[Rfam]
RNA sequence: UGCUUCGCGAGGCGGAAUCUGAAGGAAGCCGUAGGCAAACGCACGGCUUGAGGUACACGAACCCAAUUUGAGGCCGUUAUAGUCGGAUGAGUUGCCAACGCACAACAAAAUCCAAAGCCGCCAAAGGCUGUAGCGGUAAACUUGGGCAAGCGCAGGAGGAAAGAUGAUGUU
Numbered sequence: 001u002g003c004u005u006c007g008c009g010a011g012g013c014g015g016a017a018u019c020u021g022a023a024g025g026a027a028g029c030c031g032u033a034g035g036c037a038a039a040c041g042c043a044c045g046g047c048u049u050g051a052g053g054u055a056c057a058c059g060a061a062c063c064c065a066a067u068u069u070g071a072g073g074c075c076g077u078u079a080u081a082g083u084c085g086g087a088u089g090a091g092u093u094g095c096c097a098a099c100g101c102a103c104a105a106c107a108a109a110a111u112c113c114a115a116a117g118c119c120g121c122c123a124a125a126g127g128c129u130g131u132a133g134c135g136g137u138a139a140a141c142u143u144g145g146g147c148a149a150g151c152g153c154a155g156g157a158g159g160a161a162a163g164a165u166g167a168u169g170u171u
Base pairs, nucleotide, nucleotide: 001016003014005012006011028171030169031168032167036163040158042156045153046151047150048149049148050147062146063145064144065143066142067140073137074136075135077133078132079131080130081129082128083127085113086112087111088110091106092105093104094103
The record is a 171-nucleotide sequence from Carboxydocella thermautotrophica, which matches "Group II catalytic intron D1-D4-3" in Rfam. The source organism's lineage runs through Bacteria, Clostridia, Eubacteriales, Carboxydocella and Carboxydocella thermautotrophica.